Acido-Lenti-1 RNA: a 45-nucleotide RNA from a Gemmataceae bacterium. Rfam 15.1 lists 2,607 matches to the family in 171 species. Lineage of the source: Bacteria > Pseudomonadati > Planctomycetota > Gemmatales > Gemmataceae. Pairs were carried over by alignment from the consensus structure, which is taken from published work.
[Rfam]
RNA sequence: CCCGGGGUUCCACCCCGGGCUAUGUUGUCCCACCCCUUCGGGGUG
Numbered sequence: 001c002c003c004g005g006g007g008u009u010c011c012a013c014c015c016c017g018g019g020c021u022a023u024g025u026u027g028u029c030c031c032a033c034c035c036c037u038u039c040g041g042g043g044u045g
Base pairs, nucleotide, nucleotide: 001019002018003017004016005015006014007013008012032044033043034042035041036040